The record is a 111-nucleotide RNA sequence from Mucilaginibacter frigoritolerans, which matches "SAM riboswitch aptamer (S box leader)" in Rfam. Pairs were carried over by alignment from the consensus structure, which is taken from published work. A search with the family's covariance model found it, with a score of 63 bits.
RNA sequence: UGCUUAUGGAGAAAGACGGAGGGAUUAGACCCUGCGAAGUCUUGGCAACCUGUGCUUACAAGGUGCUACAUUCUACUCGGCUGGUAAUUACACCAUCGGGAAAGAUAAGCG
Numbered sequence: 001u002g003c004u005u006a007u008g009g010a011g012a013a014a015g016a017c018g019g020a021g022g023g024a025u026u027a028g029a030c031c032c033u034g035c036g037a038a039g040u041c042u043u044g045g046c047a048a049c050c051u052g053u054g055c056u057u058a059c060a061a062g063g064u065g066c067u068a069c070a071u072u073c074u075a076c077u078c079g080g081c082u083g084g085u086a087a088u089u090a091c092a093c094c095a096u097c098g099g100g101a102a103a104g105a106u107a108a109g110c111g
Stems, first nucleotide, its partner, number of pairs: 001111007013043005021032003026075004044067004049063002051060003071103001076100005